[Rfam]
RNA: SAM riboswitch aptamer (S box leader)
RNA sequence: UUCUUAUCAAGAGAGGUGGAGGGACUGGCCCUUUGAAACCUCGGCAACGGACUAUCUGUAAGUACCGUGCCAAUUCCAGAAGUGAUACGCUUGAAGAUAAGAA
Numbered sequence: 001u002u003c004u005u006a007u008c009a010a011g012a013g014a015g016g017u018g019g020a021g022g023g024a025c026u027g028g029c030c031c032u033u034u035g036a037a038a039c040c041u042c043g044g045c046a047a048c049g050g051a052c053u054a055u056c057u058g059u060a061a062g063u064a065c066c067g068u069g070c071c072a073a074u075u076c077c078a079g080a081a082g083u084g085a086u087a088c089g090c091u092u093g094a095a096g097a098u099a100a101g102a103a
Stems, first nucleotide, its partner, number of pairs: 001103008013042005021031003025079004043071004048067002051063003075095001080092005